A member of the RNA family "Small nucleolar RNA SNORD82" from Liparis tanakae, 72 nucleotides long. Rfam links the family to the GO terms RNA processing and nucleolus. On this family, see Galardi et al., Mol Cell Biol 2002: "Purified box C/D snoRNPs are able to reproduce site-specific 2'-O-methylation of target RNA in vitro". It is annotated as a C/D-box small nucleolar RNA. snoRNA U82 or Z25 is found in both humans and mice.
RNA sequence: UUGAGAUGUGAUGAUCAACAAGGGACUUAAUACUGAUUUUGUAUGAUGUCACCUUUUAUUAAUCUGAUGUCA
Number, nucleotide and partner (000 for none) at each position: 001u000002u072003g071004a070005g000006a068007u000008g000009u000010g000011a000012u000013g000014a000015u000016c000017a000018a000019c000020a000021a000022g000023g000024g000025a000026c000027u000028u000029a000030a000031u000032a000033c000034u000035g000036a000037u000038u000039u000040u000041g000042u000043a000044u000045g000046a000047u000048g000049u000050c000051a000052c000053c000054u000055u000056u000057u000058a000059u000060u000061a000062a000063u000064c000065u000066g000067a000068u006069g000070u004071c003072a002